[Rfam]
RNA sequence: AUUCUUUUAGCGACCGGUUUUCCCCGUGGUCUGCAGAGCUAUGUACGGCUUCUGAGAUCAUCGUGAAAGCCAGUUGCUAACAAGAA
Numbered sequence: 001a002u003u004c005u006u007u008u009a010g011c012g013a014c015c016g017g018u019u020u021u022c023c024c025c026g027u028g029g030u031c032u033g034c035a036g037a038g039c040u041a042u043g044u045a046c047g048g049c050u051u052c053u054g055a056g057a058u059c060a061u062c063g064u065g066a067a068a069g070c071c072a073g074u075u076g077c078u079a080a081c082a083a084g085a086a
Base pairs, nucleotide, nucleotide: 009078010077011076012075016071017070018069019068020067021066022065024063027060028059029058030057031056032055035053036052037051038049039048